[Rfam]
RNA sequence: UCAUAACACUAGGGGAGCCUUUUAAAGGCUGAGAUUGAACUUCGGUUCUAAACCCUUUGAACCUGAUCUGGGUCAUACCAGCGUAGGGAAGUGGAGGCUAUUCUUU
Dot-bracket structure: ......((((((((..(((((...))))).......((((....))))....)))).....((((..((((......))))..))))..)))).............
Numbered sequence: 001u002c003a004u005a006a007c008a009c010u011a012g013g014g015g016a017g018c019c020u021u022u023u024a025a026a027g028g029c030u031g032a033g034a035u036u037g038a039a040c041u042u043c044g045g046u047u048c049u050a051a052a053c054c055c056u057u058u059g060a061a062c063c064u065g066a067u068c069u070g071g072g073u074c075a076u077a078c079c080a081g082c083g084u085a086g087g088g089a090a091g092u093g094g095a096g097g098c099u100a101u102u103c104u105u106u
Stems, first nucleotide, its partner, number of pairs: 007093004011056004017029005037048004062087004068081004